This 32-nucleotide sequence from Shigella dysenteriae belongs to the Rfam family "shuA/chuA 5' UTR thermoregulator". The family's RNA type in Rfam is RNA thermoregulator.
RNA sequence: AUUUUUUAUUUUCCUCAUGGAGAAUCGCUAUG
Dot-bracket structure: .......(((((((....))))))).......
Rfam describes the family as follows. Shingella ShuA the outer-membrane heme receptor and its E.coli orthologue ChuA expression are subject to temperature-dependent post-transcriptional regulation by 5' UTR regions containing FourURNA thermometer. Pairs were carried over by alignment from the consensus structure, which is taken from published work.